[Rfam]
CRISPR RNA direct repeat element: a 37-nucleotide RNA sequence from Chlorogloea sp. CCALA 695. Rfam links the family to the GO term defense response.

RNA sequence: CUUUCAACUCGCCUCUAGCUGGGAGGGGUGUUGAAAC
Numbered sequence: 001c002u003u004u005c006a007a008c009u010c011g012c013c014u015c016u017a018g019c020u021g022g023g024a025g026g027g028g029u030g031u032u033g034a035a036a037c
Stems, first nucleotide, its partner, number of pairs: 005033004009027002013023003
Dot-bracket structure: ....((((((..(((.....)))..))..))))....

Lineage of the source: Bacteria > Bacillati > Cyanophyceae > Chroococcales > Chlorogloea. A search with the family's covariance model found it, with a score of 38 bits.